[Rfam]
Rfam assigns this 87-nucleotide RNA sequence from Geobacillus sp. Y412MC61 to the family "Group II catalytic intron D1-D4-1". About the family: Group II introns are found in rRNA, tRNA and mRNA of organelles in fungi, plants and protists, and also in mRNA in bacteria. The sequence is in the family's curated seed alignment. Rfam 15.1 lists 2,508 matches to the family in 1,144 species.
RNA sequence: CAACCAGAGUCGAAAGGCUCUGCUGAACGUACAGGAGUCAGCAGAGGCCAUAGUACUGGAGUAAGGGACGCCUGAAACAGGAAGGGC
Numbered sequence: 001c002a003a004c005c006a007g008a009g010u011c012g013a014a015a016g017g018c019u020c021u022g023c024u025g026a027a028c029g030u031a032c033a034g035g036a037g038u039c040a041g042c043a044g045a046g047g048c049c050a051u052a053g054u055a056c057u058g059g060a061g062u063a064a065g066g067g068a069c070g071c072c073u074g075a076a077a078c079a080g081g082a083a084g085g086g087c
Stems, first nucleotide, its partner, number of pairs: 001025002005022007038045002047087003056080003064073001
Dot-bracket structure: ((..(((((((....))))))).))............((....)).(((......(((.....(........)....)))....)))